[Rfam]
RNA sequence: UAAGAGUUAGUCACUGUCAUUACCCUCUCGUUAGGAUAUGGGAAUACUAAUGUUGA
Numbered sequence: 001u002a003a004g005a006g007u008u009a010g011u012c013a014c015u016g017u018c019a020u021u022a023c024c025c026u027c028u029c030g031u032u033a034g035g036a037u038a039u040g041g042g043a044a045u046a047c048u049a050a051u052g053u054u055g056a
Stems, first nucleotide, its partner, number of pairs: 006051006017041004024035003
Transposase-1 RNA: a 56-nucleotide sequence. It is one of the family's seed sequences. Rfam classes the family as a small RNA.